Shown here is a 275-nucleotide RNA sequence from Oryza sativa, a member of the family "MIR821 microRNA precursor family".
Rfam links the family to the GO terms miRNA-mediated post-transcriptional gene silencing and RISC complex.
The match comes from Rfam's covariance-model search (250 bits).
[Rfam]
RNA sequence: GAUUUCAACUGAAAAAGUCAUCAACAACAAAGUUCAAUAACUCAUCAAGAUCUAAAACUUUUAUUUUGGUUACUUUUUCAUCCGAUAAAGUGAUAGUAACAUUGUUCACAAAAUUGACAUAUCUCUUAUCUGGUUUUAUAAACUAUAACACAGAUGUGUAAAUUUUGUGAACAAUGUUACUAACACUUUGUCGGAUAAAGAAAUGACAAAAAUAAAAGUUGUAGAUCUUAAUGAGUUAUACGACUUUUUUGUUGAUGACUUUUUUAGUUUAAAUC
Numbered sequence: 001g002a003u004u005u006c007a008a009c010u011g012a013a014a015a016a017g018u019c020a021u022c023a024a025c026a027a028c029a030a031a032g033u034u035c036a037a038u039a040a041c042u043c044a045u046c047a048a049g050a051u052c053u054a055a056a057a058c059u060u061u062u063a064u065u066u067u068g069g070u071u072a073c074u075u076u077u078u079c080a081u082c083c084g085a086u087a088a089a090g091u092g093a094u095a096g097u098a099a100c101a102u103u104g105u106u107c108a109c110a111a112a113a114u115u116g117a118c119a120u121a122u123c124u125c126u127u128a129u130c131u132g133g134u135u136u137u138a139u140a141a142a143c144u145a146u147a148a149c150a151c152a153g154a155u156g157u158g159u160a161a162a163u164u165u166u167g168u169g170a171a172c173a174a175u176g177u178u179a180c181u182a183a184c185a186c187u188u189u190g191u192c193g194g195a196u197a198a199a200g201a202a203a204u205g206a207c208a209a210a211a212a213u214a215a216a217a218g219u220u221g222u223a224g225a226u227c228u229u230a231a232u233g234a235g236u237u238a239u240a241c242g243a244c245u246u247u248u249u250u251g252u253u254g255a256u257g258a259c260u261u262u263u264u265u266a267g268u269u270u271a272a273a274u275c
Stems, first nucleotide, its partner, number of pairs: 014262008023253002026250002030246005037239006044232002047229007056220012069207004074202002077199002080196002083193010094182006101175012114162002117159006131145006